skipping-rope RNA: a 96-nucleotide RNA.
By type it is a small RNA.
Pairs were carried over by alignment from the consensus structure, which is taken from published work.
[Rfam]
RNA sequence: ACUAUUUGAGGUGGUAAAUUUCGUAGCGACCACACGCCGAUGGUACGACAGGGGCAACCCGAGAGAUGCAGGAGGAUGCUACGCCUGCCAAAUGGU
Numbered sequence: 001a002c003u004a005u006u007u008g009a010g011g012u013g014g015u016a017a018a019u020u021u022c023g024u025a026g027c028g029a030c031c032a033c034a035c036g037c038c039g040a041u042g043g044u045a046c047g048a049c050a051g052g053g054g055c056a057a058c059c060c061g062a063g064a065g066a067u068g069c070a071g072g073a074g075g076a077u078g079c080u081a082c083g084c085c086u087g088c089c090a091a092a093u094g095g096u
Base pairs, nucleotide, nucleotide: 001096002095003094004093005092006091007090008089011033012032013031014030015029023082024081025080026079027078035063036055037054038053068088069087070086071085072084